RNA sequence: GCGAUGAGCUGUUUGUGUAAGACGAAGUACAUGCUUCCGAGGAAGCUAAACGACGAUGUGGCGUCGGUAUAUUCGCAACAAAAGUCGAAGAGCCUUCCCCUAGGGAAGGCUC
Numbered sequence: 001g002c003g004a005u006g007a008g009c010u011g012u013u014u015g016u017g018u019a020a021g022a023c024g025a026a027g028u029a030c031a032u033g034c035u036u037c038c039g040a041g042g043a044a045g046c047u048a049a050a051c052g053a054c055g056a057u058g059u060g061g062c063g064u065c066g067g068u069a070u071a072u073u074c075g076c077a078a079c080a081a082a083a084g085u086c087g088a089a090g091a092g093c094c095u096u097c098c099c100c101u102a103g104g105g106a107a108g109g110c111u112c
Base pairs, nucleotide, nucleotide: 013081014080015079016078023075024074025073026072027070028069029068030067033046034045035044036043051066052065053064054063055062090112091111092110093109094108095107096106097105098104
RNA: BsrF
Organism: Halobacillus sp. BAB-2008